RNA sequence: CAGUGGGCUGAAGCCCACUGCUAUUAUAUUCCGCCGCUGCGCGGCU
Numbered sequence: 001c002a003g004u005g006g007g008c009u010g011a012a013g014c015c016c017a018c019u020g021c022u023a024u025u026a027u028a029u030u031c032c033g034c035c036g037c038u039g040c041g042c043g044g045c046u
Stems, first nucleotide, its partner, number of pairs: 001020008033045005

Shown here is a 46-nucleotide RNA sequence, a member of the family "Acido-Lenti-1 RNA". By type it is a small RNA. The family has 87 seed sequences and 2,607 matches in Rfam 15.1.